The family of this 128-nucleotide sequence from Slackia piriformis is "Ribosomal protein L10 leader". The family's consensus secondary structure was predicted with CMfinder. The family's RNA type in Rfam is cis-regulatory leader. A search with the family's covariance model found it, with a score of 49 bits.
[Rfam]
RNA sequence: UGAACGAUAGUUCCGCUACCGAAGACAGCAGGCACCGAAAGGUUUAAUUGCAUUGCAGCCAGCCGAGGUGGAGCGCAUGAUGAUAGUGCGACCCCCGUGUCUUCGACCGGGGGUCUUUUCUUUUCGUU
Numbered sequence: 001u002g003a004a005c006g007a008u009a010g011u012u013c014c015g016c017u018a019c020c021g022a023a024g025a026c027a028g029c030a031g032g033c034a035c036c037g038a039a040a041g042g043u044u045u046a047a048u049u050g051c052a053u054u055g056c057a058g059c060c061a062g063c064c065g066a067g068g069u070g071g072a073g074c075g076c077a078u079g080a081u082g083a084u085a086g087u088g089c090g091a092c093c094c095c096c097g098u099g100u101c102u103u104c105g106a107c108c109g110g111g112g113g114u115c116u117u118u119u120c121u122u123u124u125c126g127u128u
Stems, first nucleotide, its partner, number of pairs: 028063002031060003034043003092113006099107003
Dot-bracket structure: ...........................((.((((((....)))..............))).))............................((((((.(((...)))))))))...............